[Rfam]
The record is a 62-nucleotide RNA sequence from Piliocolobus tephrosceles, which matches "U7 small nuclear RNA" in Rfam. The family has 49 seed sequences and 10,439 matches in Rfam 15.1.

RNA sequence: GAGUGUUACAGCUUUUCAUAUUUGUCCAGCAGGCUUUCUGCUUUUUACUGGAAACUGCCCCC
Numbered sequence: 001g002a003g004u005g006u007u008a009c010a011g012c013u014u015u016u017c018a019u020a021u022u023u024g025u026c027c028a029g030c031a032g033g034c035u036u037u038c039u040g041c042u043u044u045u046u047a048c049u050g051g052a053a054a055c056u057g058c059c060c061c062c
Stems, first nucleotide, its partner, number of pairs: 032059003035054006042047001